The family of this 100-nucleotide sequence from Secundilactobacillus kimchicus is "23S methyl RNA motif".
By type it is a cis-regulatory element.
Its family is annotated with regulation of gene expression in the Gene Ontology.
The source organism's lineage runs through Bacteria, Bacillota, Lactobacillales, Lactobacillaceae and Secundilactobacillus kimchicus.

RNA sequence: CGUUCGGGUGUAGAUGUCGACCAGUCGUCAGCUAUACUCGAAUUCGCACUUCAUUAACGCAGUUCCUCGCCGUGAUAACACCGAGGGGUUGCGUUUUUUU
Number, nucleotide and partner (000 for none) at each position: 001c000002g043003u042004u041005c040006g039007g038008g037009u036010g035011u034012a033013g032014a000015u030016g029017u000018c027019g026020a000021c000022c000023a000024g000025u000026c019027g018028u000029c016030a015031g000032c013033u012034a011035u010036a009037c008038u007039c006040g005041a004042a003043u002044u000045c000046g000047c000048a000049c000050u000051u000052c000053a000054u000055u000056a095057a094058c093059g092060c091061a090062g089063u088064u087065c086066c085067u084068c083069g082070c000071c000072g081073u080074g079075a000076u000077a000078a000079c074080a073081c072082c069083g068084a067085g066086g065087g064088g063089u062090u061091g060092c059093g058094u057095u056096u000097u000098u000099u000100u000